[Rfam]
RNA sequence: GUUGUAACGUCUGCAUAGUUCUCAUCUAUGGCUGGUAGCAGUGUCUGUGUUUUGCGUGAAGAUCUUGCUAUCCACACAAACGUCAUGCAGCCCAAGAGAAGCUUGGGAUCUUAGGACUGGUCUAGUGUUGUCUCUUAAGACGUAUCUACCACUGGCCAGCCUCCAGAUUCCCUCACACAG
Numbered sequence: 001g002u003u004g005u006a007a008c009g010u011c012u013g014c015a016u017a018g019u020u021c022u023c024a025u026c027u028a029u030g031g032c033u034g035g036u037a038g039c040a041g042u043g044u045c046u047g048u049g050u051u052u053u054g055c056g057u058g059a060a061g062a063u064c065u066u067g068c069u070a071u072c073c074a075c076a077c078a079a080a081c082g083u084c085a086u087g088c089a090g091c092c093c094a095a096g097a098g099a100a101g102c103u104u105g106g107g108a109u110c111u112u113a114g115g116a117c118u119g120g121u122c123u124a125g126u127g128u129u130g131u132c133u134c135u136u137a138a139g140a141c142g143u144a145u146c147u148a149c150c151a152c153u154g155g156c157c158a159g160c161c162u163c164c165a166g167a168u169u170c171c172c173u174c175a176c177a178c179a180g
Stems, first nucleotide, its partner, number of pairs: 013088004029078002033074003036070006043063003046056003105172004117159006124153004129144003133140002
Annotation
Shown here is a 180-nucleotide sequence from Otolemur garnettii, a member of the family "Small nucleolar RNA SNORA23". A search with the family's covariance model found it, with a score of 148 bits. On this family, see Huttenhofer et al., EMBO J 2001: "RNomics: an experimental approach that identifies 201 candidates for novel, small, non-messenger RNAs in mouse". By type it is an H/ACA-box small nucleolar RNA. Gene Ontology terms of the family: RNA processing and nucleolus. Pairs were carried over by alignment from the consensus structure, which was predicted with RNAalifold. The members of this family belong to the H/ACA class of snoRNAs which are thought to guide the sites of modification of uridines to pseudouridines. This family includes human snoRNA ACA23 (SNORA23) and mouse snoMBI-1. ACA23 is predicted to guide the pseudouridylation of residue U3737 and U4331 of 28S rRNA.